Small nucleolar RNA Z13/snr52: a 108-nucleotide RNA from Aspergillus sp. HF37. It scores 86 bits against the family's covariance model. Rfam links the family to the GO terms RNA processing and nucleolus. Rfam classes the family as a C/D-box small nucleolar RNA.
[Rfam]
RNA sequence: CUUGAUCAUAUGAUGAAUUAUUUCGGAUGUAAACUCACAGACCUGUUCUGAAUUUGCGCAAAUUUCUUCAUGUGGAUAUUUCCGUUGCCUUCCUUCUGAAAUGAUCAA
Number, nucleotide and partner (000 for none) at each position: 001c000002u000003u107004g106005a105006u000007c000008a000009u000010a000011u000012g000013a000014u000015g000016a000017a000018u000019u000020a000021u000022u000023u000024c084025g083026g082027a081028u000029g000030u000031a000032a000033a000034c000035u000036c000037a000038c000039a000040g000041a000042c000043c000044u000045g000046u000047u000048c000049u000050g000051a000052a000053u000054u000055u000056g000057c000058g000059c000060a000061a000062a000063u000064u000065u000066c000067u000068u000069c000070a000071u000072g000073u000074g000075g000076a000077u000078a000079u000080u000081u027082c026083c025084g024085u000086u000087g000088c000089c000090u000091u000092c000093c000094u000095u000096c000097u000098g000099a000100a000101a000102u000103g000104a000105u005106c004107a003108a000

Background: The family has 42 seed sequences and 1,203 matches in Rfam 15.1.